[Rfam]
RNA sequence: GAAUAUUGAAAGGGGAGCUGGAAAAUAAUCCGGCUGAGAUAAGUAUGUUUUACUUAAAACCCAUAUACCUGAUCUGGGUAAUGCCAGCGUAGGAAUUUUAUUUUGUCAUACU
Numbered sequence: 001g002a003a004u005a006u007u008g009a010a011a012g013g014g015g016a017g018c019u020g021g022a023a024a025a026u027a028a029u030c031c032g033g034c035u036g037a038g039a040u041a042a043g044u045a046u047g048u049u050u051u052a053c054u055u056a057a058a059a060c061c062c063a064u065a066u067a068c069c070u071g072a073u074c075u076g077g078g079u080a081a082u083g084c085c086a087g088c089g090u091a092g093g094a095a096u097u098u099u100a101u102u103u104u105g106u107c108a109u110a111c112u
Stems, first nucleotide, its partner, number of pairs: 006100001008098003012062003017034005041055005068093004074087004
Shown here is a 112-nucleotide sequence from Ruminiclostridium cellulolyticum, a member of the family "TPP riboswitch aptamer (THI element)". Pairs were carried over by alignment from the consensus structure, which is taken from published work. Rfam's curators write: Vitamin B(1) in its active form thiamin pyrophosphate (TPP) is an essential coenzyme that is synthesised by coupling of pyrimidine and thiazole moieties in bacteria.